The record is a 204-nucleotide sequence from Edwardsiella hoshinae, which matches "GcvB RNA" in Rfam.
[Rfam]
RNA sequence: ACUUCCCAAGCCGGAACGAAAAAGCAGGAAUGAAUCGUUUCAGGAAUGCUUUUGGCUUUGUGGUUGUGAUGUUGUGUUUGCAAGUUGUCUGACGCGUUAUCAGACAUGGCGGUCGCGUAAGCACUGCCGUUUUUCACUUCCUGUACAUUUACCCUGUCUGUCCAUAGUGAUUUAGUAGCACCGCCCGUUGCGGUGCUUUUUUUU
Numbered sequence: 001a002c003u004u005c006c007c008a009a010g011c012c013g014g015a016a017c018g019a020a021a022a023a024g025c026a027g028g029a030a031u032g033a034a035u036c037g038u039u040u041c042a043g044g045a046a047u048g049c050u051u052u053u054g055g056c057u058u059u060g061u062g063g064u065u066g067u068g069a070u071g072u073u074g075u076g077u078u079u080g081c082a083a084g085u086u087g088u089c090u091g092a093c094g095c096g097u098u099a100u101c102a103g104a105c106a107u108g109g110c111g112g113u114c115g116c117g118u119a120a121g122c123a124c125u126g127c128c129g130u131u132u133u134u135c136a137c138u139u140c141c142u143g144u145a146c147a148u149u150u151a152c153c154c155u156g157u158c159u160g161u162c163c164a165u166a167g168u169g170a171u172u173u174a175g176u177a178g179c180a181c182c183g184c185c186c187g188u189u190g191c192g193g194u195g196c197u198u199u200u201u202u203u204u
Base pairs, nucleotide, nucleotide: 009057010056011055012054015053016052021051023050024049025048026047031042032041033040034039086106087105088104089103090102091101092100108128109127110126111125112124113123147176148175149174177197178196179195180194181193182192183191184190
On this family, see Urbanowski et al., Mol Microbiol 2000: "The gcvB gene encodes a small untranslated RNA involved in expression of the dipeptide and oligopeptide transport systems in Escherichia coli".
The family's consensus secondary structure is taken from published work.
Taxonomically the source falls in Edwardsiella (Bacteria, Pseudomonadati, Enterobacterales, Hafniaceae).
About the family: The gcvB gene encodes a small untranslated RNA involved in expression of the dipeptide and oligopeptide transport systems in Escherichia coli. Included several unknown homologues in alignment (Bateman A pers obs). It base-pairs with SorC. This interaction triggers the degradation of GcvB by RNase E, alleviating the GcvB-mediated mRNA repression of other amino acid-related transport and metabolic genes.